[Rfam]
RNA sequence: GGGCCAAUAGCUCAGUCAGGUAUGAGCGCUCGGCUGAUAACCGGGAGGUCACCGGUUCAAAUCCGGUUUGGCCCA
Numbered sequence: 001g002g003g004c005c006a007a008u009a010g011c012u013c014a015g016u017c018a019g020g021u022a023u024g025a026g027c028g029c030u031c032g033g034c035u036g037a038u039a040a041c042c043g044g045g046a047g048g049u050c051a052c053c054g055g056u057u058c059a060a061a062u063c064c065g066g067u068u069u070g071g072c073c074c075a
Stems, first nucleotide, its partner, number of pairs: 001074007010027004029045005051067005

The family of this 75-nucleotide RNA sequence from Haloglomus irregulare is "tRNA". A search with the family's covariance model found it, with a score of 70 bits. Its family is annotated with triplet codon-amino acid adaptor activity in the Gene Ontology. It is annotated as a transfer RNA.